This 107-nucleotide RNA from Limosilactobacillus fermentum belongs to the Rfam family "PyrR binding site". A search with the family's covariance model found it, with a score of 57 bits. This family represents the PyrR binding site and terminator structure. This RNA structure is found upstream of a variety of genes involved in pyrimidine biosynthesis and transport. The alignment also includes a portion of the antiterminator structure. The family's consensus secondary structure is taken from published work.
RNA sequence: AUGUCCUUUAAGCUAGUCCCGUGAGGCUAGAAAGGUAACGGAGAAAUUGCCCGGUUUGGGCCACCGUUGAACCCUUCACUUGCGGAAUGCGAGUGGAGGGUUUUCUU
Numbered sequence: 001a002u003g004u005c006c007u008u009u010a011a012g013c014u015a016g017u018c019c020c021g022u023g024a025g026g027c028u029a030g031a032a033a034g035g036u037a038a039c040g041g042a043g044a045a046a047u048u049g050c051c052c053g054g055u056u057u058g059g060g061c062c063a064c065c066g067u068u069g070a071a072c073c074c075u076u077c078a079c080u081u082g083c084g085g086a087a088u089g090c091g092a093g094u095g096g097a098g099g100g101u102u103u104u105c106u107u
Stems, first nucleotide, its partner, number of pairs: 005035005013030006047063001049061004070102014